RNA sequence: CUGGUUCCGGUUCACGCCCCGCGCGGGGCGACCCGGCGACC
Dot-bracket structure: ..(((.((((....((((((....))))))..))))..)))
Numbered sequence: 001c002u003g004g005u006u007c008c009g010g011u012u013c014a015c016g017c018c019c020c021g022c023g024c025g026g027g028g029c030g031a032c033c034c035g036g037c038g039a040c041c
Stems, first nucleotide, its partner, number of pairs: 003041003007036004015030006
The family of this 41-nucleotide sequence from Virgisporangium ochraceum is "L31-Actinobacteria ribosomal protein leader". The base pairs follow the family's consensus structure, which is taken from published work. The literature on the family includes a 2020 paper in BMC Microbiol by Eckert and Weinberg, "Discovery of 20 novel ribosomal leader candidates in bacteria and archaea". The match comes from Rfam's covariance-model search (54 bits).